[Rfam]
RNA sequence: GCCGCUACGUGCCGAAUCGGCGCCGGAGGGCGUGCUUUCCCAGGGAUCCCUGGGAUAGGGCGUAGGGGCGACC
Numbered sequence: 001g002c003c004g005c006u007a008c009g010u011g012c013c014g015a016a017u018c019g020g021c022g023c024c025g026g027a028g029g030g031c032g033u034g035c036u037u038u039c040c041c042a043g044g045g046a047u048c049c050c051u052g053g054g055a056u057a058g059g060g061c062g063u064a065g066g067g068g069c070g071a072c073c
Base pairs, nucleotide, nucleotide: 001069002068003067005065006064007063009061012059013058019035021032022031023030024029038055039054040053041052042051
This 73-nucleotide RNA from Candidatus Kentrum sp. G belongs to the Rfam family "DUF3800-IX RNA". From the family's description: Actinobacteria, Firmicutes (1 example), Nitrospirae, Proteobacteria, Verrucomicrobia (1 example). The match comes from Rfam's covariance-model search (40 bits).